[Rfam]
RNA sequence: GCCGACCGACGCGGGAGCCCGGUGCGACCGGGCUGAGAGGACGGCUAUCGAUCAGCCGCCGACCGCCAGAACCUGCUCCGGAUAAUGCCGGCGAAGGGAGUUGCGCAGAUGAGCGA
Numbered sequence: 001g002c003c004g005a006c007c008g009a010c011g012c013g014g015g016a017g018c019c020c021g022g023u024g025c026g027a028c029c030g031g032g033c034u035g036a037g038a039g040g041a042c043g044g045c046u047a048u049c050g051a052u053c054a055g056c057c058g059c060c061g062a063c064c065g066c067c068a069g070a071a072c073c074u075g076c077u078c079c080g081g082a083u084a085a086u087g088c089c090g091g092c093g094a095a096g097g098g099a100g101u102u103g104c105g106c107a108g109a110u111g112a113g114c115g116a
Stems, first nucleotide, its partner, number of pairs: 007103004011066004017033005040060001042058005072097003078091004